Overview:
The record is a 66-nucleotide sequence from Astyanax mexicanus, which matches "MAT2A 3'UTR stem loop F" in Rfam. A search with the family's covariance model found it, with a score of 51 bits. On this family, see Parker et al., Genome Res 2011: "New families of human regulatory RNA structures identified by comparative analysis of vertebrate genomes".
[Rfam]
RNA sequence: CUUGGAAAGAUUGCAAAUUUGGCUGGUGUGGUACAGAGAAACCAGCUUUGUUUACAUGCAAUCAUG
Numbered sequence: 001c002u003u004g005g006a007a008a009g010a011u012u013g014c015a016a017a018u019u020u021g022g023c024u025g026g027u028g029u030g031g032u033a034c035a036g037a038g039a040a041a042c043c044a045g046c047u048u049u050g051u052u053u054a055c056a057u058g059c060a061a062u063c064a065u066g
Base pairs, nucleotide, nucleotide: 007065009063010062013059014058016052017051018050021047022046023045024044025043026042027041028034029033